Rfam assigns this 99-nucleotide RNA from Marinilabilia salmonicolor to the family "SAM-I/IV (S-adenosyl methionine) riboswitch aptamer". A reference for the family is Trausch et al. (2014), "Structural basis for diversity in the SAM clan of riboswitches", PNAS. Lineage of the source: Bacteria > Pseudomonadati > Marinilabiliales > Marinilabiliaceae > Marinilabilia. Clan: SAM clan. It scores 56 bits against the family's covariance model.

RNA sequence: CAAUAGCAUCCAGAACCGCAAAAAGCGGUACCAACCGAGAGUAUUCCUGCUCCACGGUGGUAAAAUGAUGUGGACGUUCCGUCAAAAACAAAAGGAAAA
Numbered sequence: 001c002a003a004u005a006g007c008a009u010c011c012a013g014a015a016c017c018g019c020a021a022a023a024a025g026c027g028g029u030a031c032c033a034a035c036c037g038a039g040a041g042u043a044u045u046c047c048u049g050c051u052c053c054a055c056g057g058u059g060g061u062a063a064a065a066u067g068a069u070g071u072g073g074a075c076g077u078u079c080c081g082u083c084a085a086a087a088a089c090a091a092a093a094g095g096a097a098a099a
Stems, first nucleotide, its partner, number of pairs: 006071005015029005030061003035057003039052002044094002073083004